[Rfam]
RNA sequence: ACCCCGGGCUAAGUACUAGCGCCGUAGGAGUGGGAUUCUGGGCUACUCCUGCAGCCUUGGUGCUUACCCCGGGGG
Numbered sequence: 001a002c003c004c005c006g007g008g009c010u011a012a013g014u015a016c017u018a019g020c021g022c023c024g025u026a027g028g029a030g031u032g033g034g035a036u037u038c039u040g041g042g043c044u045a046c047u048c049c050u051g052c053a054g055c056c057u058u059g060g061u062g063c064u065u066a067c068c069c070c071g072g073g074g075g
Base pairs, nucleotide, nucleotide: 002074003073004072005071006070007069010066011065012064013063014062015061016060017059018058019057024052025051026050027049028048029047030046

This 75-nucleotide RNA sequence from Haemaphysalis longicornis belongs to the Rfam family "mir-252 microRNA precursor family".
On this family, see Li et al., BMC Genomics 2009: "Direct sequencing and expression analysis of a large number of miRNAs in Aedes aegypti and a multi-species survey of novel mosquito miRNAs".
The family has 44 seed sequences and 422 matches in Rfam 15.1.
The match comes from Rfam's covariance-model search (59 bits).
Pairs were carried over by alignment from the consensus structure, which was predicted with RNAalifold.
Its Rfam clan is "mir-252 microRNA precursor family".